[Rfam]
RNA sequence: AAAAUUUUAGGUAAUGAAGUUUACCUUUAAAUAUCCUUUGUGAUUGAUGACUUCUACUAUUAU
Numbered sequence: 001a002a003a004a005u006u007u008u009a010g011g012u013a014a015u016g017a018a019g020u021u022u023a024c025c026u027u028u029a030a031a032u033a034u035c036c037u038u039u040g041u042g043a044u045u046g047a048u049g050a051c052u053u054c055u056a057c058u059a060u061u062a063u
Base pairs, nucleotide, nucleotide: 010025011024012023013022016054017053018052019051020050021049033044034043035042

A member of the RNA family "Fluoride riboswitch aptamer (crcB RNA motif)" from Clostridium luticellarii, 63 nucleotides long. The source organism's lineage runs through Bacteria, Bacillota, Eubacteriales, Clostridiaceae and Clostridium. The match comes from Rfam's covariance-model search (42 bits). Pairs were carried over by alignment from the consensus structure, which is taken from published work.